[Rfam]
RNA sequence: CACAGAGCAAUGACAGCAGAGCCCCAAACCCCUCACGUGUGGGGGGGGCUCUGCCCGACCCCCUCCUGUG
Number, nucleotide and partner (000 for none) at each position: 001c070002a069003c068004a067005g066006a000007g000008c000009a000010a000011u000012g000013a000014c000015a000016g054017c053018a052019g051020a050021g049022c048023c047024c046025c000026a000027a000028a000029c000030c000031c000032c000033u000034c000035a000036c000037g000038u000039g000040u000041g000042g000043g000044g000045g000046g024047g023048g022049c021050u020051c019052u018053g017054c016055c000056c000057g000058a000059c000060c000061c000062c000063c000064u000065c000066c005067u004068g003069u002070g001

Description: Selenocysteine insertion sequence 1: a 70-nucleotide sequence from Dryoscopus gambensis. The organism belongs to Dryoscopus, within Eukaryota. The family's consensus secondary structure is taken from published work. Gene Ontology term of the family: selenocysteine incorporation.